[Rfam]
RNA sequence: CUGACUUUAAUGAUGUGGAUGGAGUAAAGCUUUCAGGACCUCCAUUUGCUGAUGACUCAAAAUGAG
Numbered sequence: 001c002u003g004a005c006u007u008u009a010a011u012g013a014u015g016u017g018g019a020u021g022g023a024g025u026a027a028a029g030c031u032u033u034c035a036g037g038a039c040c041u042c043c044a045u046u047u048g049c050u051g052a053u054g055a056c057u058c059a060a061a062a063u064g065a066g
Stems, first nucleotide, its partner, number of pairs: 001066002004063001015049010030037002
Dot-bracket structure: ((.(..........((((((((((.....((....))..)))))))))).............).))
About this RNA:
A member of the RNA family "Selenocysteine insertion sequence 1" from Orycteropus afer, 66 nucleotides long. On this family, see Walczak et al., RNA 1996: "A novel RNA structural motif in the selenocysteine insertion element of eukaryotic selenoprotein mRNAs". The incorporation of selenocysteine into a protein sequence is directed by an in-frame UGA codon (usually a stop codon) within the coding region of the mRNA. Selenoprotein mRNAs contain a conserved secondary structure in the 3' UTR that is required for the distinction of UGA stop from UGA selenocysteine. It is annotated as a cis-regulatory element. A search with the family's covariance model found it, with a score of 35 bits.